[Rfam]
The family of this 198-nucleotide sequence from Umezawaea tangerina is "Actinobacteria sRNA Ms_IGR-5". Lineage of the source: Bacteria > Bacillati > Actinomycetota > Pseudonocardiales > Umezawaea.

RNA sequence: ACACGAGGAAGGAGGUGGUCCGAAGUUGUGUAGCUAUAGGACUUUUCGUGAGGUGUCCGUCCGCUAGGACCGCCCGUUAGGGACCCUUUCCGGCGCGGCCUGGCGAGUUCCAGGCAGGCACCCGACCCCCGGUACCCCGAGCCCCAGUCCAGCUCGGCCCGCACCUCGUGCGGGACACAGGUCCGGGGGUCGUCCCAU
Numbered sequence: 001a002c003a004c005g006a007g008g009a010a011g012g013a014g015g016u017g018g019u020c021c022g023a024a025g026u027u028g029u030g031u032a033g034c035u036a037u038a039g040g041a042c043u044u045u046u047c048g049u050g051a052g053g054u055g056u057c058c059g060u061c062c063g064c065u066a067g068g069a070c071c072g073c074c075c076g077u078u079a080g081g082g083a084c085c086c087u088u089u090c091c092g093g094c095g096c097g098g099c100c101u102g103g104c105g106a107g108u109u110c111c112a113g114g115c116a117g118g119c120a121c122c123c124g125a126c127c128c129c130c131g132g133u134a135c136c137c138c139g140a141g142c143c144c145c146a147g148u149c150c151a152g153c154u155c156g157g158c159c160c161g162c163a164c165c166u167c168g169u170g171c172g173g174g175a176c177a178c179a180g181g182u183c184c185g186g187g188g189g190u191c192g193u194c195c196c197a198u
Base pairs, nucleotide, nucleotide: 014061015060016059017058018057062105063104064103065102066101067100068099070098071097072096073095074093075092076091123192124191125190126189127188128187129186130185131184132183135180137157138156139155140154141153142152
Dot-bracket structure: .............(((((......................................)))))(((((((.(((((((..............))).))))))))))).................((((((((((..(.((((((.........))))))......................)..))))))))))......